[Rfam]
The record is a 585-nucleotide part of an RNA from Carlito syrichta, which matches "Eukaryotic large subunit ribosomal RNA" in Rfam. Lineage of the source: Eukaryota > Dipnotetrapodomorpha > Amniota > Theria > Carlito. It scores 2022 bits against the family's covariance model.

Nucleotides: 585
Base pairs, nucleotide, nucleotide: 001583002582003581004580005579006578008576012572017116020115022113023112024111026109120565122563123562125560
Number, partner (000 for none) and nucleotide at each position: 001583u002582g003581g004580g005579u006578g007000a008576g009000g010000u011000c012572c013000a014000u015000g016000c017116a018000g019000u020115c021000u022113g023112a024111c025000u026109g027000g028000a029000g030000u031000a032000u033000u034000c035000a036000a037000c038000c039000u040000g041000g042000u043000g044000g045000c046000g047000a048000g049000u050000u051000g052000g053000g054000c055000c056000c057000u058000g059000c060000c061000a062000g063000c064000g065000g066000c067000c068000u069000g070000g071000c072000a073000g074000a075000u076000c077000u078000u079000u080000c081000c082000u083000g084000c085000c086000c087000c088000a089000g090000u091000g092000c093000c094000u095000c096000u097000u098000g099000a100000c101000c102000c103000c104000u105000u106000c107000c108000u109026c110000u111024g112023u113022c114000u115020g116017u117000u118000c119000u120565c121000c122563c123562c124000c125560u126000c127000u128000g129000c130000c131000u132000c133000u134000c135000c136000c137000c138000c139000u140000a141000c142000c143000c144000u145000g146000g147000u148000g149000c150000a151000c152000u153000g154000u155000g156000a157000c158000u159000g160000u161000c162000u163000c164000u165000g166000g167000g168000a169000c170000a171000g172000c173000c174000a175000g176000g177000a178000a179000g180000g181000c182000c183000u184000g185000a186000c187000a188000g189000g190000a191000a192000a193000a194000g195000u196000g197000g198000c199000u200000u201000g202000g203000g204000g205000u206000g207000g208000c209000c210000u211000c212000c213000a214000c215000a216000c217000c218000c219000u220000g221000c222000a223000u224000g225000c226000a227000a228000a229000c230000c231000c232000c233000c234000c235000a236000a237000g238000u239000a240000u241000u242000a243000c244000a245000a246000c247000c248000c249000u250000a251000c252000g253000g254000c255000c256000a257000u258000g259000g260000c261000a262000a263000c264000u265000c266000a267000c268000u269000g270000g271000a272000u273000c274000c275000u276000g277000g278000g279000g280000c281000u282000g283000a284000g285000g286000a287000a288000g289000u290000g291000a292000g293000a294000c295000c296000c297000a298000u299000c300000g301000u302000g303000c304000u305000c306000u307000c308000c309000c310000c311000u312000g313000g314000c315000c316000g317000g318000u319000g320000u321000c322000c323000c324000c325000c326000c327000g328000a329000u330000g331000g332000g333000g334000g335000g336000c337000a338000c339000c340000c341000c342000u343000g344000u345000g346000a347000g348000u349000g350000g351000g352000c353000u354000u355000c356000c357000c358000c359000u360000c361000c362000c363000g364000u365000u366000a367000a368000g369000g370000c371000a372000u373000g374000c375000u376000g377000g378000a379000g380000u381000c382000c383000u384000u385000g386000g387000g388000g389000g390000g391000g392000c393000u394000g395000a396000g397000u398000u399000g400000c401000c402000c403000c404000u405000c406000c407000c408000c409000u410000g411000g412000u413000g414000u415000g416000a417000c418000c419000a420000c421000u422000c423000c424000c425000c426000c427000a428000c429000c430000c431000c432000u433000g434000c435000c436000c437000c438000c439000a440000g441000c442000a443000a444000c445000a446000g447000g448000g449000c450000a451000c452000a453000u454000g455000g456000g457000u458000g459000g460000g461000g462000g463000u464000g465000g466000g467000a468000c469000g470000g471000a472000c473000u474000a475000u476000c477000c478000c479000c480000a481000g482000u483000g484000c485000g486000c487000c488000c489000c490000c491000a492000g493000g494000u495000g496000c497000a498000u499000u500000g501000c502000a503000c504000c505000a506000u507000u508000g509000u510000g511000u512000u513000c514000a515000g516000g517000g518000g519000g520000c521000u522000g523000g524000c525000c526000a527000u528000g529000c530000u531000c532000c533000u534000g535000g536000c537000g538000a539000g540000c541000a542000a543000a544000c545000g546000a547000g548000c549000u550000c551000a552000c553000c554000g555000g556000a557000u558000c559000a560125g561000u562123g563122g564000c565120g566000a567000c568000a569000u570000u571000g572012g573000c574000u575000a576008c577000c578006c579005a580004c581003c582002u583001g584000a585000c